A member of the RNA family "Flavo-1 RNA" from Flavobacterium cyanobacteriorum, 78 nucleotides long.
The family's RNA type in Rfam is small RNA.
Taxonomically the source falls in Flavobacterium (Bacteria, Pseudomonadati, Bacteroidota, Flavobacteriia).

RNA sequence: CUUUUGCGUUAGGGAUUGAAGCGGAAAUCCUAUUUGUCCCGAAGGGCAAAUAGAUUGUAGCGGAAAGCCCGACCCGCA
Numbered sequence: 001c002u003u004u005u006g007c008g009u010u011a012g013g014g015a016u017u018g019a020a021g022c023g024g025a026a027a028u029c030c031u032a033u034u035u036g037u038c039c040c041g042a043a044g045g046g047c048a049a050a051u052a053g054a055u056u057g058u059a060g061c062g063g064a065a066a067g068c069c070c071g072a073c074c075c076g077c078a
Stems, first nucleotide, its partner, number of pairs: 012070003016066002021061002026056004032051008